[Rfam]
RNA sequence: UAGAAUAAUGUAGGUAAGGGAAGUCGGCAAAUUAGAUCCGUAACUUCGGGAUAAGGAUUGGCUCUGAAGAUUGAGAUAGUCGGGCUUGAUUGGGAAACAAUAACAUGGUUUAUGUGCUCGUUCUGGGUAAAUAGAGUUUCUAGCAUUUAUGUUAGUUACUUGUUCCCCGGAUAGUUUAGUUACGUAGCCAAUUGUGGAACUUUCUUGCUAAAAUUUUUAAGAAUACUAUUUGGGUUAAACCAAUUAGUUCUUAUCAAUUAUAACGAUUAUCAAUUAACAAUCAAUUCAGAACUGGCACGGACUUGGGGAAUCCGACUGUCUAAUUAAAACAAAGCAUUGUGAUGGCCCUAGCGGGUGUUGACACAAUGUGAUUUCUGCCCAGUGCUCUGAAUGUCAAAGUGAAGAAAUUCAAGUAAGCGCGGGUCAACGGCGGGAGUAACUAUGACUCUCUUAAGGUAGCCAAAUGCCUCGUCAUCUAAUUAGUGACGCGCAUGAAUGGAUUAACGAGAUUCCUACUGUCCCUAUUCCCUGUCAGUGACGCGCAUGAAUGGAUUAACGACGGACGUGUUU
Numbered sequence: 001u002a003g004a005a006u007a008a009u010g011u012a013g014g015u016a017a018g019g020g021a022a023g024u025c026g027g028c029a030a031a032u033u034a035g036a037u038c039c040g041u042a043a044c045u046u047c048g049g050g051a052u053a054a055g056g057a058u059u060g061g062c063u064c065u066g067a068a069g070a071u072u073g074a075g076a077u078a079g080u081c082g083g084g085c086u087u088g089a090u091u092g093g094g095a096a097a098c099a100a101u102a103a104c105a106u107g108g109u110u111u112a113u114g115u116g117c118u119c120g121u122u123c124u125g126g127g128u129a130a131a132u133a134g135a136g137u138u139u140c141u142a143g144c145a146u147u148u149a150u151g152u153u154a155g156u157u158a159c160u161u162g163u164u165c166c167c168c169g170g171a172u173a174g175u176u177u178a179g180u181u182a183c184g185u186a187g188c189c190a191a192u193u194g195u196g197g198a199a200c201u202u203u204c205u206u207g208c209u210a211a212a213a214u215u216u217u218u219a220a221g222a223a224u225a226c227u228a229u230u231u232g233g234g235u236u237a238a239a240c241c242a243a244u245u246a247g248u249u250c251u252u253a254u255c256a257a258u259u260a261u262a263a264c265g266a267u268u269a270u271c272a273a274u275u276a277a278c279a280a281u282c283a284a285u286u287c288a289g290a291a292c293u294g295g296c297a298c299g300g301a302c303u304u305g306g307g308g309a310a311u312c313c314g315a316c317u318g319u320c321u322a323a324u325u326a327a328a329a330c331a332a333a334g335c336a337u338u339g340u341g342a343u344g345g346c347c348c349u350a351g352c353g354g355g356u357g358u359u360g361a362c363a364c365a366a367u368g369u370g371a372u373u374u375c376u377g378c379c380c381a382g383u384g385c386u387c388u389g390a391a392u393g394u395c396a397a398a399g400u401g402a403a404g405a406a407a408u409u410c411a412a413g414u415a416a417g418c419g420c421g422g423g424u425c426a427a428c429g430g431c432g433g434g435a436g437u438a439a440c441u442a443u444g445a446c447u448c449u450c451u452u453a454a455g456g457u458a459g460c461c462a463a464a465u466g467c468c469u470c471g472u473c474a475u476c477u478a479a480u481u482a483g484u485g486a487c488g489c490g491c492a493u494g495a496a497u498g499g500a501u502u503a504a505c506g507a508g509a510u511u512c513c514u515a516c517u518g519u520c521c522c523u524a525u526u527c528c529c530u531g532u533c534a535g536u537g538a539c540g541c542g543c544a545u546g547a548a549u550g551g552a553u554u555a556a557c558g559a560c561g562g563a564c565g566u567g568u569u570u
Stems, first nucleotide, its partner, number of pairs: 001534001003533002010529001013526004018521003035059005044049001060293002063290006069282005075271008084175003090169001097163004101158004106154004111149002114146005120140001121136005294298001306514007313506002317331003334369008345356004373500003377431003382428002384424004389420001392419003400411004432450006451455001471487005546568001548566003
Description: Shown here is a 570-nucleotide part of an RNA from Gasterosteus aculeatus, a member of the family "Eukaryotic large subunit ribosomal RNA". The source organism's lineage runs through Eukaryota, Metazoa, Deuterostomia, Teleostomi and Gasterosteus. Rfam 15.1 lists 107,465 matches to the family in 2,616 species.